The family of this 81-nucleotide sequence from Macaca mulatta is "mir-181 microRNA precursor family". A reference for the family is Ambros (2001), "microRNAs: tiny regulators with great potential", Cell. The family's consensus secondary structure was predicted with PFOLD. The source organism's lineage runs through Eukaryota, Deuterostomia, Haplorrhini, Cercopithecinae and Macaca. Rfam's curators put it in the seed alignment.
[Rfam]
RNA sequence: UGGCUGCACUCAACAUUCAUUGCUGUCGGUGGGUUUGAGUCUGAAUCAACUCACUGAUCGAUGAAUGCAAACUGCGGACCA
Numbered sequence: 001u002g003g004c005u006g007c008a009c010u011c012a013a014c015a016u017u018c019a020u021u022g023c024u025g026u027c028g029g030u031g032g033g034u035u036u037g038a039g040u041c042u043g044a045a046u047c048a049a050c051u052c053a054c055u056g057a058u059c060g061a062u063g064a065a066u067g068c069a070a071a072c073u074g075c076g077g078a079c080c081a
Stems, first nucleotide, its partner, number of pairs: 001081003004077005014067009025058007033050003